[Rfam]
RNA sequence: GCGCAGGGAAAAUGAGGGACUUUUGGGGGCAGCUGUGUUUUUCCAUGCUACCAUAAUGCCCCUAAAAAUCCUUAUUGCUCUUGCC
Numbered sequence: 001g002c003g004c005a006g007g008g009a010a011a012a013u014g015a016g017g018g019a020c021u022u023u024u025g026g027g028g029g030c031a032g033c034u035g036u037g038u039u040u041u042u043c044c045a046u047g048c049u050a051c052c053a054u055a056a057u058g059c060c061c062c063u064a065a066a067a068a069u070c071c072u073u074a075u076u077g078c079u080c081u082u083g084c085c
Stems, first nucleotide, its partner, number of pairs: 015073005021067003025063007034055004